[Rfam]
RNA sequence: GUGAUCUAUGAUGAUUCAAUACUAAAAUUGUGACUGCUGGAUGAAGCUUGCGGAUAUGGGACUGAGAUCAGCA
Number, nucleotide and partner (000 for none) at each position: 001g072002u070003g069004a068005u000006c000007u000008a000009u000010g000011a000012u000013g000014a000015u000016u000017c000018a000019a000020u000021a000022c000023u000024a000025a000026a000027a000028u000029u000030g000031u000032g000033a000034c000035u000036g000037c000038u000039g000040g000041a000042u000043g000044a000045a000046g000047c000048u000049u000050g000051c000052g000053g000054a000055u000056a000057u000058g000059g000060g000061a000062c000063u000064g000065a000066g000067a000068u004069c003070a002071g000072c001073a000
RNA: Small nucleolar RNA SNORD99